The family of this 192-nucleotide RNA from Heterocephalus glaber is "Small nucleolar RNA ZL1".
The family's RNA type in Rfam is C/D-box small nucleolar RNA.
Pairs were carried over by alignment from the consensus structure, which was predicted with RNAfold.
Host gene TRRAP. Predicted target U2@U47. Only GU-rich region is homologous to other known snoRNAs. Conserved in vertebrates.
RNA sequence: GGAGAAGCAAAGUGAUGAGCAAUAUUAGCUGGAGUCCCAAAAAGGCAUGAAUGUGUGUCUGUGUAUCUGUGUCCUUGUCUGUGCAUGCAUAUGUGUGUCUGAGUGUACGAAUGUGUGUGACUGGUUGUAGGGAACUAGCUAUAUGCCUUGUAUUGGGCCAUGACAGUCAAACUGAUAAGAUCUGAUUGCUUC
Number, nucleotide and partner (000 for none) at each position: 001g000002g000003a000004g192005a191006a190007g189008c188009a187010a186011a000012g000013u000014g182015a181016u180017g000018a000019g000020c000021a000022a000023u000024a000025u000026u169027a000028g167029c166030u165031g164032g000033a000034g000035u000036c103037c000038c101039a100040a000041a098042a000043a096044g000045g094046c093047a092048u091049g090050a000051a000052u087053g086054u085055g084056u083057g000058u000059c081060u000061g079062u000063g000064u071065a070066u000067c000068u000069g000070u065071g064072u000073c000074c000075u000076u000077g000078u000079c061080u000081g059082u000083g056084c055085a054086u053087g052088c000089a000090u049091a048092u047093g046094u045095g000096u043097g000098u041099c000100u039101g038102a000103g036104u000105g118106u117107a116108c115109g000110a000111a000112u000113g000114u000115g108116u107117g106118u105119g000120a000121c138122u137123g136124g135125u134126u133127g000128u000129a000130g000131g000132g000133a126134a125135c124136u123137a122138g121139c000140u162141a161142u160143a000144u000145g158146c157147c156148u155149u000150g000151u000152a000153u000154u000155g148156g147157g146158c145159c000160a142161u141162g140163a000164c031165a030166g029167u028168c000169a026170a000171a000172c000173u000174g000175a000176u000177a000178a000179g000180a016181u015182c014183u000184g000185a000186u010187u009188g008189c007190u006191u005192c004